[Rfam]
RNA: Small nucleolar RNA R64/Z200 family
Organism: Spirodela intermedia
RNA sequence: UCUCUGCUGUGAGGAACAAUUGACUUCUCUACGCACGUCGGACUUCAGAGAUUUAAACAUCAAUGAGAACAAAAGUCUUAUUCUGAGCAGAAA
Numbered sequence: 001u002c003u004c005u006g007c008u009g010u011g012a013g014g015a016a017c018a019a020u021u022g023a024c025u026u027c028u029c030u031a032c033g034c035a036c037g038u039c040g041g042a043c044u045u046c047a048g049a050g051a052u053u054u055a056a057a058c059a060u061c062a063a064u065g066a067g068a069a070c071a072a073a074a075g076u077c078u079u080a081u082u083c084u085g086a087g088c089a090g091a092a093a
Base pairs, nucleotide, nucleotide: 001093003091004090005089006088007087050061051060052059